[Rfam]
RNA: Fluoride riboswitch aptamer (crcB RNA motif)
Organism: Clostridium sp. 7_2_43FAA
RNA sequence: AUAAUUUUUGGGAAUGAAGUUCUCCCAUGAGAAAUCUAAACCGUCAAGUAAGACUAAUGACUUCUAUGAUUUA
Numbered sequence: 001a002u003a004a005u006u007u008u009u010g011g012g013a014a015u016g017a018a019g020u021u022c023u024c025c026c027a028u029g030a031g032a033a034a035u036c037u038a039a040a041c042c043g044u045c046a047a048g049u050a051a052g053a054c055u056a057a058u059g060a061c062u063u064c065u066a067u068g069a070u071u072u073a
Base pairs, nucleotide, nucleotide: 010026011025012024013023016064017063018062019061020060021059043054044053045052